[Rfam]
RNA: Archaeal large subunit ribosomal RNA, nucleotides 2662 to 2911
RNA sequence: UGGUAUCUGACGGGAACGCCCGUAUAGUACGAGAGGAACUACGGGUGGUCGCCACUGGUGUACCGGUCGUUCGAGAGAGCGCUGCCGGGCAGCCACGCGACAUGGGGUAAGAGCUGAACGCAUCUAAGCUCGAAACCCACCUGGAAAAGAGAUACCGCCGAGGCUGCUCGUAGAAGACGAGAUCGAUAGACUCGGGGUGUGCGCGUCGAGGCAACGAGACGUUGAGCCCGCGAGCACUAACAGCCAAAGC
Dot-bracket structure: ((((((((..((((..((((((((...............))))))))(((((...(((....((((((((((....)))))..)))))....))).)))))..(((....(((((...........)))))....))).))))......))))))))....((((.((((.......)))).....(((.(((((((.....(((((..(....)..)))))....))).))))..)))..)))).....